[Rfam]
RNA sequence: UGCGUUUUUUGCCCAGGCGGAGCUCGACCGCCGUUUGAAGAACUGAAACGAUUCGUGGACCUGCACCGUGACACCUACGGGGUCGAGUCCAUCUGCAAGGUGCUGCAGAUGGCCCCA
Numbered sequence: 001u002g003c004g005u006u007u008u009u010u011g012c013c014c015a016g017g018c019g020g021a022g023c024u025c026g027a028c029c030g031c032c033g034u035u036u037g038a039a040g041a042a043c044u045g046a047a048a049c050g051a052u053u054c055g056u057g058g059a060c061c062u063g064c065a066c067c068g069u070g071a072c073a074c075c076u077a078c079g080g081g082g083u084c085g086a087g088u089c090c091a092u093c094u095g096c097a098a099g100g101u102g103c104u105g106c107a108g109a110u111g112g113c114c115c116c117a
Stems, first nucleotide, its partner, number of pairs: 016032005079116004089112002092109006
Notes: ALIL pseudoknot: a 117-nucleotide RNA from Limnohabitans sp. 103DPR2. Its family is annotated with positive regulation of translational frameshifting in the Gene Ontology. It is annotated as a cis-regulatory element.